[Rfam]
RNA sequence: UUGUCAAUUGAUGCCUAGGCACCAAGAUGACCCGGUCCGGUGCAUUGACCCUUUACCCCCAGCCCCCAAUGCCCGGAUCGGAUCUUCCA
Numbered sequence: 001u002u003g004u005c006a007a008u009u010g011a012u013g014c015c016u017a018g019g020c021a022c023c024a025a026g027a028u029g030a031c032c033c034g035g036u037c038c039g040g041u042g043c044a045u046u047g048a049c050c051c052u053u054u055a056c057c058c059c060c061a062g063c064c065c066c067c068a069a070u071g072c073c074c075g076g077a078u079c080g081g082a083u084c085u086u087c088c089a
Stems, first nucleotide, its partner, number of pairs: 003031004008025003012021003032081009042072006
Overview:
Rhizobiales sRNA Atu_C10: an 89-nucleotide RNA sequence from Agrobacterium fabrum. On this family, see Wilms et al., RNA Biol 2012: "Deep sequencing uncovers numerous small RNAs on all four replicons of the plant pathogen Agrobacterium tumefaciens". It is one of the family's seed sequences.